[Rfam]
The family of this 47-nucleotide RNA sequence from Gossypium anomalum is "Plastid-ycf3 group II-D1 intron". Plastid rpl16 is a non-coding RNA (ncRNA) recognised in plastids. It was recognised in and intronic region of a ribosome rpl16 gene.
RNA sequence: AUUAUUUCUGUCGUGUAUUCUCGAUUAAUGUAAUCUCAAAUGUUUCA
Numbered sequence: 001a002u003u004a005u006u007u008c009u010g011u012c013g014u015g016u017a018u019u020c021u022c023g024a025u026u027a028a029u030g031u032a033a034u035c036u037c038a039a040a041u042g043u044u045u046c047a
Base pairs, nucleotide, nucleotide: 010025011024012023013022032044033043034042